RNA sequence: UCCCCCACAGUUCUCCGAUUCCCGUUUUCCGCAAGGAAUGUCCGCAAGGGCCUCUCUGCUGGGCUGGGUCACCACAAUACGUCGCAUCUCGUACCUGUAUCAGGAAUCUCGAUGAUCGCCGCGCUUGGAUUAUUGUGGCAAAGGUUGUCAGCAACUGGCAAGCCAGUCCCCAGCGAGGGUACGGGUUUCGGAACUUAACCCUAAGUAAUCGG
Numbered sequence: 001u002c003c004c005c006c007a008c009a010g011u012u013c014u015c016c017g018a019u020u021c022c023c024g025u026u027u028u029c030c031g032c033a034a035g036g037a038a039u040g041u042c043c044g045c046a047a048g049g050g051c052c053u054c055u056c057u058g059c060u061g062g063g064c065u066g067g068g069u070c071a072c073c074a075c076a077a078u079a080c081g082u083c084g085c086a087u088c089u090c091g092u093a094c095c096u097g098u099a100u101c102a103g104g105a106a107u108c109u110c111g112a113u114g115a116u117c118g119c120c121g122c123g124c125u126u127g128g129a130u131u132a133u134u135g136u137g138g139c140a141a142a143g144g145u146u147g148u149c150a151g152c153a154a155c156u157g158g159c160a161a162g163c164c165a166g167u168c169c170c171c172a173g174c175g176a177g178g179g180u181a182c183g184g185g186u187u188u189c190g191g192a193a194c195u196u197a198a199c200c201c202u203a204a205g206u207a208a209u210c211g212g
Base pairs, nucleotide, nucleotide: 009195010194011193015191016190017189018188
Shown here is a 212-nucleotide part of an RNA from Cytospora schulzeri, a member of the family "Ascomycota telomerase RNA".
Pairs were carried over by alignment from the consensus structure.
Its Rfam clan is "Telomerase clan".
Taxonomically the source falls in Cytospora (Eukaryota, Ascomycota, saccharomyceta, Sordariomycetes).
A search with the family's covariance model found it, with a score of 478 bits.